[Rfam]
RNA: salivarius-1 RNA
Organism: Ligilactobacillus salivarius
RNA sequence: GCCUUGUAUUAGUGUAAUUUGAAACUAUCACACGUUUUGAGGACGUGACAAGGCAU
Numbered sequence: 001g002c003c004u005u006g007u008a009u010u011a012g013u014g015u016a017a018u019u020u021g022a023a024a025c026u027a028u029c030a031c032a033c034g035u036u037u038u039g040a041g042g043a044c045g046u047g048a049c050a051a052g053g054c055a056u
Stems, first nucleotide, its partner, number of pairs: 001054007010027003013023001022038001029041001031047006
Dot-bracket structure: (((((((..((((........[).))).{.((((((.]..})))))))))))))..